[Rfam]
RNA sequence: UGAAUAUAUUGGCAAAUCUAGGGAAAUCUAGAGGCGCAAAGCUAAAGGGGCUAAGGUUUAUAUAAACUAUGCCAGCCAGUUGCCGAA
Numbered sequence: 001u002g003a004a005u006a007u008a009u010u011g012g013c014a015a016a017u018c019u020a021g022g023g024a025a026a027u028c029u030a031g032a033g034g035c036g037c038a039a040a041g042c043u044a045a046a047g048g049g050g051c052u053a054a055g056g057u058u059u060a061u062a063u064a065a066a067c068u069a070u071g072c073c074a075g076c077c078a079g080u081u082g083c084c085g086a087a
Stems, first nucleotide, its partner, number of pairs: 012037002017032006040081004047077002049073003056067004
About this RNA:
A member of the RNA family "c-di-GMP-I riboswitch aptamer" from Turicibacter sp. H121, 87 nucleotides long. The source organism's lineage runs through Bacteria, Bacillota, Erysipelotrichia, Erysipelotrichales and Turicibacter. About the family: GEMM was predicted in a large-scale screen for bacterial structured RNA regulatory elements. It scores 82 bits against the family's covariance model.